[Rfam]
RNA: Small nucleolar RNA SNORD18
RNA sequence: GACAAUGAUGAGAUUCCACUUCACGGUCCGUGUUUUUGACAACUCGUGAUAUUAAUGGAAGUUCUGAUGUC
Numbered sequence: 001g002a003c004a005a006u007g008a009u010g011a012g013a014u015u016c017c018a019c020u021u022c023a024c025g026g027u028c029c030g031u032g033u034u035u036u037u038g039a040c041a042a043c044u045c046g047u048g049a050u051a052u053u054a055a056u057g058g059a060a061g062u063u064c065u066g067a068u069g070u071c
Stems, first nucleotide, its partner, number of pairs: 001071004